[Rfam]
RNA sequence: GUUUUAAAGAGCCCCUAAAUGCUACACCAUAAGUAACAAGAAUUGGCCCCAGGAAUUUUAUUCAUUAUAUAUAAAUAAAAUGUAUAUAUGAAUAAAAUUCCUGGGGCCAAUUCUUGUUACUUAUGGUGUAGCAUUUAGGGGCUCUUU
Numbered sequence: 001g002u003u004u005u006a007a008a009g010a011g012c013c014c015c016u017a018a019a020u021g022c023u024a025c026a027c028c029a030u031a032a033g034u035a036a037c038a039a040g041a042a043u044u045g046g047c048c049c050c051a052g053g054a055a056u057u058u059u060a061u062u063c064a065u066u067a068u069a070u071a072u073a074a075a076u077a078a079a080a081u082g083u084a085u086a087u088a089u090g091a092a093u094a095a096a097a098u099u100c101c102u103g104g105g106g107c108c109a110a111u112u113c114u115u116g117u118u119a120c121u122u123a124u125g126g127u128g129u130a131g132c133a134u135u136u137a138g139g140g141g142c143u144c145u146u147u
Stems, first nucleotide, its partner, number of pairs: 011142005023130031
Dot-bracket structure: ..........(((((.......(((((((((((((((((((((((((((((((..............................................))))))))))))))))))))))))))))))).......))))).....
Shown here is a 147-nucleotide sequence from Mauremys mutica, a member of the family "Wolbachia sRNA 46". The source organism's lineage runs through Eukaryota, Euteleostomi, Amniota, Sauria and Mauremys. On this family, see Mayoral et al., Proc Natl Acad Sci U S A 2014: "Wolbachia small noncoding RNAs and their role in cross-kingdom communications". The base pairs follow the family's consensus structure. By type it is a small RNA.